[Rfam]
Nucleotides: 110
Stems, first nucleotide, its partner, number of pairs: 011100001014096006023087011
Number, partner (000 for none) and nucleotide at each position: 001000c002000u003000u004000g005000c006000a007000g008000a009000g010000u011100u012000u013000c014096u015095u016094g017093g018092c019091a020000u021000u022000c023087u024086g025085u026084c027083c028082a029081c030080c031079u032078c033077c034000a035000c036000u037000u038000g039000a040000u041000g042000u043000a044000u045000g046000u047000u048000u049000c050000u051000u052000u053000c054000u055000c056000u057000u058000a059000c060000a061000c062000c063000u064000u065000u066000c067000a068000c069000u070000c071000c072000u073000a074000c075000g076000a077033g078032g079031a080030g081029g082028u083027g084026g085025a086024c087023a088000u089000a090000c091019u092018g093017c094016c095015a096014a097000c098000a099000g100011a101000g102000c103000u104000g105000u106000g107000u108000u109000g110000g

The record is a 110-nucleotide RNA sequence from Vigna angularis, which matches "MIR394 microRNA precursor family" in Rfam. The base pairs follow the family's consensus structure, which was predicted with WAR. The family has 19 seed sequences and 724 matches in Rfam 15.1. NCBI's taxonomy places the organism under Eukaryota, Papilionoideae, Phaseoleae, Vigna, Vigna angularis.